[Rfam]
RNA sequence: UAGCCGGUUAGAGUCCGGUCCAAGGAGACGCCAGAGUCCUUGGUAGGGAAGCCUCCGGGUUUGAUAGAGAUGUCAGGGUCGAAGCGGGGUGGACCAAAUGUGCGGUCCGCAGCAUAAAGCGAAUUCUCAAAGCGUCGUAA
Numbered sequence: 001u002a003g004c005c006g007g008u009u010a011g012a013g014u015c016c017g018g019u020c021c022a023a024g025g026a027g028a029c030g031c032c033a034g035a036g037u038c039c040u041u042g043g044u045a046g047g048g049a050a051g052c053c054u055c056c057g058g059g060u061u062u063g064a065u066a067g068a069g070a071u072g073u074c075a076g077g078g079u080c081g082a083a084g085c086g087g088g089g090u091g092g093a094c095c096a097a098a099u100g101u102g103c104g105g106u107c108c109g110c111a112g113c114a115u116a117a118a119g120c121g122a123a124u125u126c127u128c129a130a131a132g133c134g135u136c137g138u139a140a
Stems, first nucleotide, its partner, number of pairs: 020043005051090005056081003060077002065072002100115004119138003